[Rfam]
RNA sequence: AGUUAAAGGAGCAAUGCCGUUUUCUUGUUUUGUCAAGAAAUUGGUUAUUGCUCCUUUAUU
Numbered sequence: 001a002g003u004u005a006a007a008g009g010a011g012c013a014a015u016g017c018c019g020u021u022u023u024c025u026u027g028u029u030u031u032g033u034c035a036a037g038a039a040a041u042u043g044g045u046u047a048u049u050g051c052u053c054c055u056u057u058a059u060u
Base pairs, nucleotide, nucleotide: 005057006056007055008054009053010052011051012050013049014048015047016046019042022039023038024037025036026035027034
RNA: Plastid-psbA-4 3UTR RNA